[Rfam]
RNA: Small nucleolar RNA SNORD53/SNORD92
Organism: Pelodiscus sinensis
RNA sequence: AUGCUGUGAUGACCUCCAUCUUGGUUUCGCUUAUUGCUGAAUUCCAUGAAGACACAUUUCUCUUGGCUGUCUGAGCAU
Numbered sequence: 001a002u003g004c005u006g007u008g009a010u011g012a013c014c015u016c017c018a019u020c021u022u023g024g025u026u027u028c029g030c031u032u033a034u035u036g037c038u039g040a041a042u043u044c045c046a047u048g049a050a051g052a053c054a055c056a057u058u059u060c061u062c063u064u065g066g067c068u069g070u071c072u073g074a075g076c077a078u
Stems, first nucleotide, its partner, number of pairs: 001078004